RNA sequence: GUUUUUUUCUCGAUAGGCCUGUUGGAGUGUGGGGUAAGAUCGUGGGGUCGCUCUGCGCCAUUGCUGGCGUACUCACCAUCGCACUGCCAGUUCCUGUCAUCGUAUCGAAC
Numbered sequence: 001g002u003u004u005u006u007u008u009c010u011c012g013a014u015a016g017g018c019c020u021g022u023u024g025g026a027g028u029g030u031g032g033g034g035u036a037a038g039a040u041c042g043u044g045g046g047g048u049c050g051c052u053c054u055g056c057g058c059c060a061u062u063g064c065u066g067g068c069g070u071a072c073u074c075a076c077c078a079u080c081g082c083a084c085u086g087c088c089a090g091u092u093c094c095u096g097u098c099a100u101c102g103u104a105u106c107g108a109a110c
Stems, first nucleotide, its partner, number of pairs: 001110002004107001007104001008102001012098004017093001018090001033073004045059002
The record is a 110-nucleotide RNA from Bicyclus anynana, which matches "Potassium channel RNA editing signal" in Rfam. This family represents a group of sequences related to the human potassium channel Kv1.1 hairpin element which directs the efficient modification of an adenosine to inosine by an adenosine deaminase acting on RNA (ADAR). The ADAR modification causes an isoleucine/valine recoding event which lies in the ion-conducting pore of the potassium channel. It is thought that this editing event targets the process of fast inactivation and allows a more rapid recovery from inactivation at negative potentials. Lineage of the source: Eukaryota > Panarthropoda > Dicondylia > Papilionoidea > Bicyclus. The base pairs follow the family's consensus structure, which is taken from published work. It is annotated as a cis-regulatory element.